[Rfam]
RNA sequence: CUUCACCGAGCCGAGCCACAGGGGACGCUCCUCGGGCCGGUCCUGGCCGUAGGUGGCGAGCAGUGCCUGGGCCUC
Numbered sequence: 001c002u003u004c005a006c007c008g009a010g011c012c013g014a015g016c017c018a019c020a021g022g023g024g025a026c027g028c029u030c031c032u033c034g035g036g037c038c039g040g041u042c043c044u045g046g047c048c049g050u051a052g053g054u055g056g057c058g059a060g061c062a063g064u065g066c067c068u069g070g071g072c073c074u075c
Base pairs, nucleotide, nucleotide: 016024017023031071032070033069038065039064043060044059047056048055049054
This 75-nucleotide sequence from Streptomyces sp. AVP053U2 belongs to the Rfam family "ASpks TB sRNA". On this family, see Arnvig and Young, Mol Microbiol 2009: "Identification of small RNAs in Mycobacterium tuberculosis". The source organism's lineage runs through Bacteria, Bacillati, Actinomycetes, Kitasatosporales and Streptomyces.